[Rfam]
RNA: Connexin-43 internal ribosome entry site (IRES)
RNA sequence: CACCUUUAUAAGAUAUCAGCACUUUUCUCUCAUUAGGGAAAAGGAAUGAUGAAAGUACCAAACAGCAGCAGCAGACUUCAAAGCUUAAAAUAGGCAGGUCUGAGAAUCUGAACUUGCUUUAACAUUUUGCUUCAUCCUCUAAGGCGUUCAGUCCCUUGGUGUGCCUACUCUUUUAAGAAAAAGAGCUUUGAGGAGG
Numbered sequence: 001c002a003c004c005u006u007u008a009u010a011a012g013a014u015a016u017c018a019g020c021a022c023u024u025u026u027c028u029c030u031c032a033u034u035a036g037g038g039a040a041a042a043g044g045a046a047u048g049a050u051g052a053a054a055g056u057a058c059c060a061a062a063c064a065g066c067a068g069c070a071g072c073a074g075a076c077u078u079c080a081a082a083g084c085u086u087a088a089a090a091u092a093g094g095c096a097g098g099u100c101u102g103a104g105a106a107u108c109u110g111a112a113c114u115u116g117c118u119u120u121a122a123c124a125u126u127u128u129g130c131u132u133c134a135u136c137c138u139c140u141a142a143g144g145c146g147u148u149c150a151g152u153c154c155c156u157u158g159g160u161g162u163g164c165c166u167a168c169u170c171u172u173u174u175a176a177g178a179a180a181a182a183g184a185g186c187u188u189u190g191a192g193g194a195g196g
Base pairs, nucleotide, nucleotide: 003019007015008014009013029146031144033142034141035140036139037138038137041132042131043130048126049125050124051123055120073101074100075099076098077097078096102117104115105114155193156192157191159189161188163186164185165183166182169178170177171176